[Rfam]
RNA: NiCo (Nickel/Cobalt) riboswitch aptamer
Organism: Streptococcus merionis
RNA sequence: AUAAUUAAAGAUGAACAAGCGGUGGUCUGACCAUGCAGCCGGGCCUUCAAGUCUGAAGGCAGCAGUAUAAGUACGAUGAGUGCGUAUCUGUGAGACAGUA
Numbered sequence: 001a002u003a004a005u006u007a008a009a010g011a012u013g014a015a016c017a018a019g020c021g022g023u024g025g026u027c028u029g030a031c032c033a034u035g036c037a038g039c040c041g042g043g044c045c046u047u048c049a050a051g052u053c054u055g056a057a058g059g060c061a062g063c064a065g066u067a068u069a070a071g072u073a074c075g076a077u078g079a080g081u082g083c084g085u086a087u088c089u090g091u092g093a094g095a096c097a098g099u100a
Base pairs, nucleotide, nucleotide: 010099012097013096016094019039020038022034023033024032025031026030043060044059045058046057047056048055049054062091063090064089065088